Molybdenum/Tungsten riboswitch aptamer (Moco RNA motif): a 118-nucleotide RNA sequence from Desulfotruncus arcticus. The organism belongs to Desulfotruncus arcticus, within Bacteria. The family's consensus secondary structure is taken from published work.

RNA sequence: GAUAUCAUGUGCUCCGAGCCGCUUUGCCUAAAACAGCAGUUAUGGUAAUUUGGCCGUUAGGGUAUCACUGGAAACGGUUAUGCCUCCCGUUGUGGAAAGGAGUGCAGUGUUAAGCUGU
Numbered sequence: 001g002a003u004a005u006c007a008u009g010u011g012c013u014c015c016g017a018g019c020c021g022c023u024u025u026g027c028c029u030a031a032a033a034c035a036g037c038a039g040u041u042a043u044g045g046u047a048a049u050u051u052g053g054c055c056g057u058u059a060g061g062g063u064a065u066c067a068c069u070g071g072a073a074a075c076g077g078u079u080a081u082g083c084c085u086c087c088c089g090u091u092g093u094g095g096a097a098a099g100g101a102g103u104g105c106a107g108u109g110u111u112a113a114g115c116u117g118u
Stems, first nucleotide, its partner, number of pairs: 003112002006109001010104006018054004024048005032041003060085006067078004086095002